[Rfam]
RNA sequence: GCGACCACCUCGGGGUGCUCACGCGAGCUGAGAUGCGCAUCUGCGCGAACCCGUCGAACCUGAACCGGCUCGCACCGGCGGAGGGAAGGUCGCGCUGUCCUUU
Numbered sequence: 001g002c003g004a005c006c007a008c009c010u011c012g013g014g015g016u017g018c019u020c021a022c023g024c025g026a027g028c029u030g031a032g033a034u035g036c037g038c039a040u041c042u043g044c045g046c047g048a049a050c051c052c053g054u055c056g057a058a059c060c061u062g063a064a065c066c067g068g069c070u071c072g073c074a075c076c077g078g079c080g081g082a083g084g085g086a087a088g089g090u091c092g093c094g095c096u097g098u099c100c101u102u103u
Stems, first nucleotide, its partner, number of pairs: 007090004011053004016047001017028004035046004059084003065078004
RNA: TPP riboswitch aptamer (THI element)